[Rfam]
RNA sequence: CGAUUAAGUAGAGGUUGCAGCUUUAAAGAGUAAUGCGUACGAGAUAAAGAGAUAUCAUUGACUCCGCAUGAAAGGGAAAGCUGCCGAAGUUUGUUUUCAUCUCUUUGAAGGCAGGCUGGGGCUGAUAUCGAAAGAAUCAGCACUGUCACGUUCAAGACCAUUUGUAACGUGGGGAGCUAAUCAUCGG
Numbered sequence: 001c002g003a004u005u006a007a008g009u010a011g012a013g014g015u016u017g018c019a020g021c022u023u024u025a026a027a028g029a030g031u032a033a034u035g036c037g038u039a040c041g042a043g044a045u046a047a048a049g050a051g052a053u054a055u056c057a058u059u060g061a062c063u064c065c066g067c068a069u070g071a072a073a074g075g076g077a078a079a080g081c082u083g084c085c086g087a088a089g090u091u092u093g094u095u096u097u098c099a100u101c102u103c104u105u106u107g108a109a110g111g112c113a114g115g116c117u118g119g120g121g122c123u124g125a126u127a128u129c130g131a132a133a134g135a136a137u138c139a140g141c142a143c144u145g146u147c148a149c150g151u152u153c154a155a156g157a158c159c160a161u162u163u164g165u166a167a168c169g170u171g172g173g174g175a176g177c178u179a180a181u182c183a184u185c186g187g
Base pairs, nucleotide, nucleotide: 007181009179010178011177017084018083019082020081021080022079023078024077033069034068035067036066037065039063088117089116090115091114092113093112094111095110096109097108098107099106118144119143121141122140123139124138125137126136128134146172147171148170149169150168151167152166
A member of the RNA family "Lysine riboswitch aptamer" from Peribacillus deserti, 187 nucleotides long.
Its family is annotated with lysine biosynthetic process in the Gene Ontology.
Taxonomically the source falls in Peribacillus (Bacteria, Bacillota, Caryophanales, Bacillaceae).